[Rfam]
RNA sequence: UGGUGUCCUGUAACUUACUACUGCCGCUUUACAUAACGUAGCUUGUAAAUGCGAGCAGUAGUAGGCGUCUGGACGCUA
Numbered sequence: 001u002g003g004u005g006u007c008c009u010g011u012a013a014c015u016u017a018c019u020a021c022u023g024c025c026g027c028u029u030u031a032c033a034u035a036a037c038g039u040a041g042c043u044u045g046u047a048a049a050u051g052c053g054a055g056c057a058g059u060a061g062u063a064g065g066c067g068u069c070u071g072g073a074c075g076c077u078a
Stems, first nucleotide, its partner, number of pairs: 003076006014065005020059005028049006

mir-BART14 microRNA precursor family: a 78-nucleotide RNA from Lymphocryptovirus macacinegamma4. It is one of the family's seed sequences. Rfam 15.1 lists 5 matches to the family in 2 species.